[Rfam]
RNA sequence: CUGACGAACUCGAGCCGACCUGAGUCGACCACAAGAUCGUCAAUGUCCGAUCGAACCGCGGGUGGAAACACGGCCCGCGGCCCGAACACGGGAGAGAACGCUGAGCGUCACCAC
Numbered sequence: 001c002u003g004a005c006g007a008a009c010u011c012g013a014g015c016c017g018a019c020c021u022g023a024g025u026c027g028a029c030c031a032c033a034a035g036a037u038c039g040u041c042a043a044u045g046u047c048c049g050a051u052c053g054a055a056c057c058g059c060g061g062g063u064g065g066a067a068a069c070a071c072g073g074c075c076c077g078c079g080g081c082c083c084g085a086a087c088a089c090g091g092g093a094g095a096g097a098a099c100g101c102u103g104a105g106c107g108u109c110a111c112c113a114c
Stems, first nucleotide, its partner, number of pairs: 002042006009035002012032001056080008065071001